This 75-nucleotide sequence from Acipenser ruthenus belongs to the Rfam family "mir-363 microRNA precursor family". Gene Ontology terms of the family: miRNA-mediated post-transcriptional gene silencing and RISC complex. NCBI's taxonomy places the organism under Eukaryota, Craniata, Acipenseroidei, Acipenserini, Acipenser. Clan: mir-19 clan. Rfam 15.1 lists 620 matches to the family in 594 species. A reference for the family is Warren et al. (2010), "The genome of a songbird", Nature.

RNA sequence: GCUGUUUUCGGGUGGGUGGCGUUGCAAUCUUAUUCAAACGUUUAAAAAUUGCACGGUAUCCAUCUGUAAUCCGCG
Numbered sequence: 001g002c003u004g005u006u007u008u009c010g011g012g013u014g015g016g017u018g019g020c021g022u023u024g025c026a027a028u029c030u031u032a033u034u035c036a037a038a039c040g041u042u043u044a045a046a047a048a049u050u051g052c053a054c055g056g057u058a059u060c061c062a063u064c065u066g067u068a069a070u071c072c073g074c075g
Stems, first nucleotide, its partner, number of pairs: 009066009019057002023053006030046002